A member of the RNA family "TPP riboswitch aptamer (THI element)" from Methylophilus medardicus, 103 nucleotides long.
[Rfam]
RNA sequence: CAAAACGCCUUGGGGUGGCAACGCCUGAGAUCUCACGCAAGUGAGGAACCCAAUGAACCUGACCCAGAUAAUGCUGGCGUAGGGACAGGCAGAGCUUCUACAA
Numbered sequence: 001c002a003a004a005a006c007g008c009c010u011u012g013g014g015g016u017g018g019c020a021a022c023g024c025c026u027g028a029g030a031u032c033u034c035a036c037g038c039a040a041g042u043g044a045g046g047a048a049c050c051c052a053a054u055g056a057a058c059c060u061g062a063c064c065c066a067g068a069u070a071a072u073g074c075u076g077g078c079g080u081a082g083g084g085a086c087a088g089g090c091a092g093a094g095c096u097u098c099u100a101c102a103a
Base pairs, nucleotide, nucleotide: 007090008089009088010087011052012051013050014049016046017025018024019023032045033044034043035042036041058083059082060081061080064077065076066075067074

The family's consensus secondary structure is taken from published work.
It scores 70 bits against the family's covariance model.
Gene Ontology term of the family: thiamine pyrophosphate binding.